[Rfam]
RNA sequence: GUUAAAGACACUGGAGGCAGCGGUUCAUCGAUCUCUUCCUGGGAAUUUUGUUGUGAGAAUAACACAAAUACAUGAUUCGAUCGAUAAACCUCUGCAUCCAGAGCCUUACCU
Numbered sequence: 001g002u003u004a005a006a007g008a009c010a011c012u013g014g015a016g017g018c019a020g021c022g023g024u025u026c027a028u029c030g031a032u033c034u035c036u037u038c039c040u041g042g043g044a045a046u047u048u049u050g051u052u053g054u055g056a057g058a059a060u061a062a063c064a065c066a067a068a069u070a071c072a073u074g075a076u077u078c079g080a081u082c083g084a085u086a087a088a089c090c091u092c093u094g095c096a097u098c099c100a101g102a103g104c105c106u107u108a109c110c111u
Base pairs, nucleotide, nucleotide: 013099014098015097018094019093020092022090023089024088025087027085028084029083030082031081032080033079037075038074

The record is a 111-nucleotide sequence from Theobroma cacao, which matches "MIR162_1 microRNA precursor family" in Rfam. Rfam's curators put it in the seed alignment. Taxonomically the source falls in Theobroma (Eukaryota, Tracheophyta, Mesangiospermae, Malvales). Rfam 15.1 lists 270 matches to the family in 158 species.